[Rfam]
RNA: Bacterial large signal recognition particle RNA
RNA sequence: UUGUGCUAGAUGGGGAACUAGCGGUGCCCUGUAUCUGCAAUCCGCUACAGCAGAGUCGAAGGCUCCCUUAGGUUAUUUUUCUGAAGGUCUGAGGUAAAUUGGAUUCGUUGAGAGUUAAGCUCCAUGCAUUAAAAGCCUACAAACCCCGCCAGGAUCGGAAGAUAGCAACGGUAAGUAGUAUCUUUUAAGUGAUAUGGAAUCACUUAAUUUGAGUUGAAGAUUUAUUCUUCCGCUUUGGGAAAAUUUAUCGACGGGAGAUGCACAA
Dot-bracket structure: ((((((..(((((((.(((...))).))))...(((((...........)))))))).....(((((...(((.(.((((((((((....(..((((((..(((.......((((((((.(((((((..(((((..((((.....(((.....(((....))).....)))...))))....))))).)...))))))....))))))))..)))....)))))).).....))))))))))..).)))...)))))..))))))